The family of this 112-nucleotide sequence is "PyrR binding site".
It is annotated as a cis-regulatory element.
About the family: This family represents the PyrR binding site and terminator structure.
Rfam 15.1 lists 1,498 matches to the family in 930 species.

[Rfam]
RNA sequence: UACCCUUUUAAAAGUAGUCCUGUGAGGCUGACAAAGGGGAAUAUGCCGAAAUACACUUAUUUAGGCAUGUCCAUACCCUCUUUGUACCCUCACGGACAAAGAGGUUUUUUUU
Numbered sequence: 001u002a003c004c005c006u007u008u009u010a011a012a013a014g015u016a017g018u019c020c021u022g023u024g025a026g027g028c029u030g031a032c033a034a035a036g037g038g039g040a041a042u043a044u045g046c047c048g049a050a051a052u053a054c055a056c057u058u059a060u061u062u063a064g065g066c067a068u069g070u071c072c073a074u075a076c077c078c079u080c081u082u083u084g085u086a087c088c089c090u091c092a093c094g095g096a097c098a099a100a101g102a103g104g105u106u107u108u109u110u111u112u
Base pairs, nucleotide, nucleotide: 003038004037005036006035007034008033015030016029017028018027019026041070042069043068044067045066046065047064049062050061051060052059053058075106077104078103079102080101081100082099083098084097085096087094